[Rfam]
RNA sequence: CGGGCCGUAAGUGGGGAGUAGUCGGCUUGCGCCACCCCGGCGCAAGAACCUGUGUCAACAUAAUCGGUCCGCAGACCGUGGUGCAGGUGGUUGAAAAACUUGACGAGACCAUGAUCGAGGUGCGGCCAUGAUGGGCCGGAGUCGCGCCUGGAUCAUUGGUUAAUCGUUUCCGGCCCGCGUACUAC
Numbered sequence: 001c002g003g004g005c006c007g008u009a010a011g012u013g014g015g016g017a018g019u020a021g022u023c024g025g026c027u028u029g030c031g032c033c034a035c036c037c038c039g040g041c042g043c044a045a046g047a048a049c050c051u052g053u054g055u056c057a058a059c060a061u062a063a064u065c066g067g068u069c070c071g072c073a074g075a076c077c078g079u080g081g082u083g084c085a086g087g088u089g090g091u092u093g094a095a096a097a098a099c100u101u102g103a104c105g106a107g108a109c110c111a112u113g114a115u116c117g118a119g120g121u122g123c124g125g126c127c128a129u130g131a132u133g134g135g136c137c138g139g140a141g142u143c144g145c146g147c148c149u150g151g152a153u154c155a156u157u158g159g160u161u162a163a164u165c166g167u168u169u170c171c172g173g174c175c176c177g178c179g180u181a182c183u184a185c
Stems, first nucleotide, its partner, number of pairs: 026046005048088010065078005090185002093182001095180001